[Rfam]
Small nucleolar RNA SNORD24: an 86-nucleotide RNA from Oryza brachyantha.
RNA sequence: GGCCAGUGAUGUGAGGAAAUAUUUGCUACUCUUGAUGGGGCAAGAGUCCUAUCUGAUGAUCACUAACCACCAAGAUCUCUGAGGCC
Number, nucleotide and partner (000 for none) at each position: 001g086002g085003c084004c083005a000006g000007u000008g000009a000010u000011g000012u000013g000014a000015g000016g000017a000018a000019a000020u000021a000022u000023u000024u000025g000026c000027u000028a000029c000030u000031c000032u000033u000034g000035a000036u000037g000038g000039g000040g000041c000042a000043a000044g000045a000046g000047u000048c000049c000050u000051a000052u000053c000054u000055g000056a000057u000058g000059a000060u000061c000062a000063c000064u000065a000066a000067c000068c000069a000070c000071c000072a000073a000074g000075a000076u000077c000078u000079c000080u000081g000082a000083g004084g003085c002086c001

By type it is a C/D-box small nucleolar RNA. NCBI's taxonomy places the organism under Eukaryota, Streptophyta, commelinids, Poaceae, Oryza. Rfam 15.1 lists 2,843 matches to the family in 1,188 species.